[Rfam]
RNA sequence: UCCGGGGGAAGCUCACCGCCGAGGCUACGCACCGGGUGCACGUCACCCCCCACCCCGCGCCUCGGGGAAGGUCUGAGCGAGGGGCCCACGACGGCCCCAGCAGGGCCCCGUCCGCGCGCGGGCGGGUGAGCCACCAGCAAGGGGGGGCGCCGCGGCGGUCGGCCCGGGCAGGAGAAGCUGCAGGCGGGUGGCGCUGCCUCCCCGUCCCGGCGGAUGCUCAUGGCCCCGCGGCGCUGUGAGACAGACUCACGGCCGGCACUAACUGAGUCCAAUGGGUGAGGUGGGGUACCGCCCCACAACCCAAUUCAGACUACUCUCCCCCGGA
Numbered sequence: 001u002c003c004g005g006g007g008g009a010a011g012c013u014c015a016c017c018g019c020c021g022a023g024g025c026u027a028c029g030c031a032c033c034g035g036g037u038g039c040a041c042g043u044c045a046c047c048c049c050c051c052a053c054c055c056c057g058c059g060c061c062u063c064g065g066g067g068a069a070g071g072u073c074u075g076a077g078c079g080a081g082g083g084g085c086c087c088a089c090g091a092c093g094g095c096c097c098c099a100g101c102a103g104g105g106c107c108c109c110g111u112c113c114g115c116g117c118g119c120g121g122g123c124g125g126g127u128g129a130g131c132c133a134c135c136a137g138c139a140a141g142g143g144g145g146g147g148c149g150c151c152g153c154g155g156c157g158g159u160c161g162g163c164c165c166g167g168g169c170a171g172g173a174g175a176a177g178c179u180g181c182a183g184g185c186g187g188g189u190g191g192c193g194c195u196g197c198c199u200c201c202c203c204g205u206c207c208c209g210g211c212g213g214a215u216g217c218u219c220a221u222g223g224c225c226c227c228g229c230g231g232c233g234c235u236g237u238g239a240g241a242c243a244g245a246c247u248c249a250c251g252g253c254c255g256g257c258a259c260u261a262a263c264u265g266a267g268u269c270c271a272a273u274g275g276g277u278g279a280g281g282u283g284g285g286g287u288a289c290c291g292c293c294c295c296a297c298a299a300c301c302c303a304a305u306u307c308a309g310a311c312u313a314c315u316c317u318c319c320c321c322c323g324g325a
Base pairs, nucleotide, nucleotide: 001325002324003323004322007319008318009317012280013279014278015277016276017275020064021063022062023061024060034048035047036046037045038044073309074308075307076306077305083254084253085252086251093107094106095105096104097103108125109124110123111122112121113120126250127249128248129247130246132244146235147234148233149232150231151230152229153228154227155226281297282296283295284294285293286292
RNA: Nuclear RNase P